[Rfam]
RNA sequence: AUCACUAUAAUACCUCGGUUUUUUGGUGAAGUGAUUUGCGUUUUAUAACAAACACUAUGCUUGUUAUUCGCUUUCGCAUGCUUUCCCGGAGGGGGGCGUGAGCAAAACGUACAACGCUUUUGUGUUCAAUUU
Numbered sequence: 001a002u003c004a005c006u007a008u009a010a011u012a013c014c015u016c017g018g019u020u021u022u023u024u025g026g027u028g029a030a031g032u033g034a035u036u037u038g039c040g041u042u043u044u045a046u047a048a049c050a051a052a053c054a055c056u057a058u059g060c061u062u063g064u065u066a067u068u069c070g071c072u073u074u075c076g077c078a079u080g081c082u083u084u085c086c087c088g089g090a091g092g093g094g095g096g097c098g099u100g101a102g103c104a105a106a107a108c109g110u111a112c113a114a115c116g117c118u119u120u121u122g123u124g125u126u127c128a129a130u131u132u
Stems, first nucleotide, its partner, number of pairs: 009126005028120006037111005046066006053059001070103004075098003084095004
RNA: nqrA-Marinomonas RNA
Organism: Marinomonas spartinae